[Rfam]
RNA sequence: UGCCUUCAGUGUUGCCCAUUCAUCUUGGUUGCUAAUGAAUGUGGUGUCAGAGAAGGCAUAAAACAAGUUUUCCACUUUUGCAGUUUUUGCUGCCCUAGGAAUUGUUUUGUUUGCACUGGGUUUGCUGCAGUGGGACAACAAUAUAU
Numbered sequence: 001u002g003c004c005u006u007c008a009g010u011g012u013u014g015c016c017c018a019u020u021c022a023u024c025u026u027g028g029u030u031g032c033u034a035a036u037g038a039a040u041g042u043g044g045u046g047u048c049a050g051a052g053a054a055g056g057c058a059u060a061a062a063a064c065a066a067g068u069u070u071u072c073c074a075c076u077u078u079u080g081c082a083g084u085u086u087u088u089g090c091u092g093c094c095c096u097a098g099g100a101a102u103u104g105u106u107u108u109g110u111u112u113g114c115a116c117u118g119g120g121u122u123u124g125c126u127g128c129a130g131u132g133g134g135a136c137a138a139c140a141a142u143a144u145a146u
Stems, first nucleotide, its partner, number of pairs: 002057006010049002013046004017041007067139003070135006079129006